The family of this 63-nucleotide RNA from Flavobacteriaceae bacterium 3519-10 is "Flavo-1 RNA". Rfam 15.1 lists 7,497 matches to the family in 411 species.
[Rfam]
RNA sequence: UUCUAGCCCCGAUUGCAGCGGCAUCCCCGCCGCGGCGGGAUACAGCGGAAAGCGGGUACGCAU
Numbered sequence: 001u002u003c004u005a006g007c008c009c010c011g012a013u014u015g016c017a018g019c020g021g022c023a024u025c026c027c028c029g030c031c032g033c034g035g036c037g038g039g040a041u042a043c044a045g046c047g048g049a050a051a052g053c054g055g056g057u058a059c060g061c062a063u
Base pairs, nucleotide, nucleotide: 009055010054011053013051014050018046019045023041024040025039026038028037029036030035
NCBI's taxonomy places the organism under Bacteria, Pseudomonadati, Bacteroidota, Flavobacteriales, Flavobacteriaceae. It is annotated as a small RNA. The match comes from Rfam's covariance-model search (50 bits).